Shown here is a 223-nucleotide sequence from Medicago truncatula, a member of the family "MIR2630 microRNA precursor family". The match comes from Rfam's covariance-model search (193 bits). The source organism's lineage runs through Eukaryota, fabids, Papilionoideae, Hologalegina and Medicago.

RNA sequence: UUUUAUAAAAAUAUUUGGUUUUGGUCCUUCGUAUUUUGUUUUAAUCCUUAUAAAAUCAUUUCAUAUUAAAACUGGUCCCUAUAAUAUUCAUUUUAGUCAUCGUUAUGAGGGACUAAAAUUAAAUUUUCUACAAUUACAAGGACCAAAUCCAAUAUGAAUCAAUUUUACAAGGACUAAAACAAAAUACCAAGGACCAAAGCCAAAUUUUUUAUAUUUGCAGGGA
Dot-bracket structure: ...((((..((.(((.(((((((((((((.(((((((((((((.((.((.((((((...((.(((((.....((((((...((((.(..............(((.(........).)))............)))))...)))))).....))))).))...)))))).)).)).))))))))))))).))))))))))))).))).)).))))..........